[Rfam]
RNA sequence: GAAUUCCCCGGAGAAUGGACUCCGGGAAGAUAGAAUAAAAAUUAAUUUAAGUAGUGGGGAUGAACGAACAUCUUUCAA
Numbered sequence: 001g002a003a004u005u006c007c008c009c010g011g012a013g014a015a016u017g018g019a020c021u022c023c024g025g026g027a028a029g030a031u032a033g034a035a036u037a038a039a040a041a042u043u044a045a046u047u048u049a050a051g052u053a054g055u056g057g058g059g060a061u062g063a064a065c066g067a068a069c070a071u072c073u074u075u076c077a078a
Base pairs, nucleotide, nucleotide: 004028005027007026008025009024010023011022012021013020062075063074064073

Background: The record is a 78-nucleotide RNA sequence from Allium victorialis, which matches "Plastid-rpl20 3UTR RNA" in Rfam. The family has 270 seed sequences and 587 matches in Rfam 15.1. The source organism's lineage runs through Eukaryota, Liliopsida, Asparagales, Allieae and Allium. Rfam's curators write: Plastid rpl20 is a non-coding RNA (ncRNA) recognised in plastids. It was found in the three prime untranslated region (3UTR) of rpl20 gene, it presence in the 3UTR region sugest a role in transcript maduration. It is annotated as a cis-regulatory element. It is one of the family's seed sequences.